The family of this 102-nucleotide RNA from Papaver nudicaule is "Small nucleolar RNA Z279/snoR105/snoR108". Clan: snoU13 clan. About the family: This family includes the plant snoRNAs known as Z279, snoR105 and snoR108. It scores 66 bits against the family's covariance model. It is annotated as a C/D-box small nucleolar RNA. A reference for the family is Marker et al. (2002), "Experimental RNomics: identification of 140 candidates for small non-messenger RNAs in the plant Arabidopsis thaliana", Curr Biol.
[Rfam]
RNA sequence: GGGAAAUGAUGAGUGGUCGCAAUUCUAUGCGAGAAUUGGGUGUCCAGCCUAAAGCCUGGUUACGACAAUAUGGGCACUCCCAUUUGUUACCGAUCUGAUCCC
Numbered sequence: 001g002g003g004a005a006a007u008g009a010u011g012a013g014u015g016g017u018c019g020c021a022a023u024u025c026u027a028u029g030c031g032a033g034a035a036u037u038g039g040g041u042g043u044c045c046a047g048c049c050u051a052a053a054g055c056c057u058g059g060u061u062a063c064g065a066c067a068a069u070a071u072g073g074g075c076a077c078u079c080c081c082a083u084u085u086g087u088u089a090c091c092g093a094u095c096u097g098a099u100c101c102c
Stems, first nucleotide, its partner, number of pairs: 001102004014092004023035004038079007056072001059069002